[Rfam]
RNA sequence: CUUUUAUAAAUGAUGUCAUCUAUGGAAACGCUUUAGCGACAUUGAUUGACUGAUUAUCAAAAG
Numbered sequence: 001c002u003u004u005u006a007u008a009a010a011u012g013a014u015g016u017c018a019u020c021u022a023u024g025g026a027a028a029c030g031c032u033u034u035a036g037c038g039a040c041a042u043u044g045a046u047u048g049a050c051u052g053a054u055u056a057u058c059a060a061a062a063g
Base pairs, nucleotide, nucleotide: 001063002062003061004060005059015050016049017048018046019045020044022042023041024040030037031036
Selenocysteine insertion sequence 1: a 63-nucleotide RNA sequence from Rotaria sp. Silwood1. The incorporation of selenocysteine into a protein sequence is directed by an in-frame UGA codon (usually a stop codon) within the coding region of the mRNA. Selenoprotein mRNAs contain a conserved secondary structure in the 3' UTR that is required for the distinction of UGA stop from UGA selenocysteine. The selenocysteine insertion sequence (SECIS) is around 60 nt in length and adopts a hairpin structure which is sufficiently well-defined and conserved to act as a computational screen for selenoprotein genes. Pairs were carried over by alignment from the consensus structure, which is taken from published work. Its family is annotated with selenocysteine incorporation in the Gene Ontology. The family's RNA type in Rfam is cis-regulatory element. The source organism's lineage runs through Eukaryota, Protostomia, Rotifera, Bdelloidea and Rotaria.